Source information:
Small nucleolar RNA SNORA31: a 126-nucleotide sequence from Jaculus jaculus. The match comes from Rfam's covariance-model search (76 bits). Rfam links the family to the GO terms RNA processing and nucleolus. From the family's description: ACA31 (SNORA31) belongs to the H/ACA class of snoRNAs which are thought to guide the sites of modification of uridines to pseudouridines. ACA31 is predicted to guide the pseudouridylation of U3713 in 28S rRNA and U218 in 18S rRNA. This family includes the mouse homologue snoMBI-161.
RNA sequence: CUGCAUCCACUGAUAGACCAUGAACAGGUUGUGGUUCUUGUGGUUUGCUCUACGAUGAGAGUCAAGGAUCCUUUGCAAUUUCUGCCUGUCUUUGUGGCAGCCCAGAUAGAAUUGGGAAGUACAUCA
Numbered sequence: 001c002u003g004c005a006u007c008c009a010c011u012g013a014u015a016g017a018c019c020a021u022g023a024a025c026a027g028g029u030u031g032u033g034g035u036u037c038u039u040g041u042g043g044u045u046u047g048c049u050c051u052a053c054g055a056u057g058a059g060a061g062u063c064a065a066g067g068a069u070c071c072u073u074u075g076c077a078a079u080u081u082c083u084g085c086c087u088g089u090c091u092u093u094g095u096g097g098c099a100g101c102c103c104a105g106a107u108a109g110a111a112u113u114g115g116g117a118a119g120u121a122c123a124u125c126a
Stems, first nucleotide, its partner, number of pairs: 004057004012048001014047006022037004069118001071116001073115003081106004086100005
Taxonomically the source falls in Jaculus (Eukaryota, Teleostomi, Rodentia, Dipodoidea).